[Rfam]
RNA sequence: UUCGAGCCGAGGGGCAAAGCGGAAACUUCAGGUCGACGUCGAUCAGAAACAGUAGCUAGUAGCCCGAUCCCAGUGACGGACUGACUGAAGCCGGGAUAAGUACUGAGCCCACGCAAAGGGCAGUCAGGCAGUAUCUUA
Numbered sequence: 001u002u003c004g005a006g007c008c009g010a011g012g013g014g015c016a017a018a019g020c021g022g023a024a025a026c027u028u029c030a031g032g033u034c035g036a037c038g039u040c041g042a043u044c045a046g047a048a049a050c051a052g053u054a055g056c057u058a059g060u061a062g063c064c065c066g067a068u069c070c071c072a073g074u075g076a077c078g079g080a081c082u083g084a085c086u087g088a089a090g091c092c093g094g095g096a097u098a099a100g101u102a103c104u105g106a107g108c109c110c111a112c113g114c115a116a117a118g119g120g121c122a123g124u125c126a127g128g129c130a131g132u133a134u135c136u137u138a
Base pairs, nucleotide, nucleotide: 012065013064014063015062018057019056020055031044032043033042034041035040067097068096070094071093073091074090081127082126083125084124101133102132103131104130107121108120109119110118

The record is a 138-nucleotide RNA sequence, which matches "poplar-1 RNA" in Rfam. The base pairs follow the family's consensus structure, which is taken from published work. By type it is a small RNA.